[Rfam]
RNA: Purine riboswitch aptamer
RNA sequence: AAGCACAACAACACAAAUAUUCGUAUAAUUUCAGGGAUUGGCCUGAAAGUUUCUACGAGGUCACCGUAAUGACCUGGCUACGAUUAAGAAGAGGAUUCCU
Numbered sequence: 001a002a003g004c005a006c007a008a009c010a011a012c013a014c015a016a017a018u019a020u021u022c023g024u025a026u027a028a029u030u031u032c033a034g035g036g037a038u039u040g041g042c043c044u045g046a047a048a049g050u051u052u053c054u055a056c057g058a059g060g061u062c063a064c065c066g067u068a069a070u071g072a073c074c075u076g077g078c079u080a081c082g083a084u085u086a087a088g089a090a091g092a093g094g095a096u097u098c099c100u
Stems, first nucleotide, its partner, number of pairs: 018086002021083005029048007058075006